[Rfam]
RNA: Purine riboswitch aptamer
RNA sequence: CACAUCUAUAUAUAAUUCCUUCAUAUAUCCUCGAUGAUAUGGUUCGAGAGUCUCUACCGGGUCGCCUUAAAUGAUCUGACUAUGAAGGCAGAUAAGUCUUUG
Numbered sequence: 001c002a003c004a005u006c007u008a009u010a011u012a013u014a015a016u017u018c019c020u021u022c023a024u025a026u027a028u029c030c031u032c033g034a035u036g037a038u039a040u041g042g043u044u045c046g047a048g049a050g051u052c053u054c055u056a057c058c059g060g061g062u063c064g065c066c067u068u069a070a071a072u073g074a075u076c077u078g079a080c081u082a083u084g085a086a087g088g089c090a091g092a093u094a095a096g097u098c099u100u101u102g
Base pairs, nucleotide, nucleotide: 018088019087020086021085022084023083024082025081030048031047032046033045034044058078059077060076061075062074063073064072